[Rfam]
RNA: Qrr RNA
RNA sequence: UGACCCUUAUGGGUCACCUAGCCAACUGACGUUGUUUGUGAGCACUUCGUUCACUCAAACAAGAUAGCCAGCCAAAUUUUCGGCUGGCUUUUUUUUA
Numbered sequence: 001u002g003a004c005c006c007u008u009a010u011g012g013g014u015c016a017c018c019u020a021g022c023c024a025a026c027u028g029a030c031g032u033u034g035u036u037u038g039u040g041a042g043c044a045c046u047u048c049g050u051u052c053a054c055u056c057a058a059a060c061a062a063g064a065u066a067g068c069c070a071g072c073c074a075a076a077u078u079u080u081c082g083g084c085u086g087g088c089u090u091u092u093u094u095u096u097a
Stems, first nucleotide, its partner, number of pairs: 001016006033064001035062001038054006068087006075080001